[Rfam]
RNA: SmY spliceosomal RNA
RNA sequence: GCAAGCACUGCGUCUAUGCCAGGGCCUUCGUUAAGACCCGAUGAUGAAUUUUUGGAUGCUCUCACAGGGUGAGGGCU
Numbered sequence: 001g002c003a004a005g006c007a008c009u010g011c012g013u014c015u016a017u018g019c020c021a022g023g024g025c026c027u028u029c030g031u032u033a034a035g036a037c038c039c040g041a042u043g044a045u046g047a048a049u050u051u052u053u054g055g056a057u058g059c060u061c062u063c064a065c066a067g068g069g070u071g072a073g074g075g076c077u
Base pairs, nucleotide, nucleotide: 022039023038024037026035027034028033058076059075060074061073062072063071064070065069